[Rfam]
This 118-nucleotide RNA sequence from Cuscuta europaea belongs to the Rfam family "U5 spliceosomal RNA". The source organism's lineage runs through Eukaryota, Viridiplantae, Mesangiospermae, Pentapetalae and Cuscuta subgen. Cuscuta. By type it is a spliceosomal small nuclear RNA. The family's consensus secondary structure is taken from published work. It scores 83 bits against the family's covariance model.
Nucleotides: 118
Base pairs, nucleotide, nucleotide: 003077004076005075006074008067009066010065011064012063015060016059017058018057027053028052029051030050031049032048033047034046101118103116104115105114106113
Number, partner (000 for none) and nucleotide at each position: 001000a002000g003077c004076c005075a006074u007000g008067c009066g010065u011064u012063g013000a014000a015060c016059a017058c018057a019000a020000a021000g022000c023000g024000a025000a026000c027053u028052a029051u030050u031049c032048u033047u034046u035000c036000g037000c038000c039000u040000u041000u042000u043000a044000c045000c046034a047033a048032a049031g050030a051029a052028u053027a054000c055000c056000g057018u058017g059016u060015g061000c062000a063012c064011g065010g066009c067008g068000c069000a070000a071000u072000a073000a074006a075005u076004g077003g078000c079000a080000u081000a082000c083000u084000c085000c086000c087000a088000u089000u090000u091000u092000u093000g094000g095000a096000a097000u098000g099000g100000u101118g102000a103116c104115u105114u106113c107000c108000u109000c110000u111000u112000g113106g114105a115104a116103g117000g118101c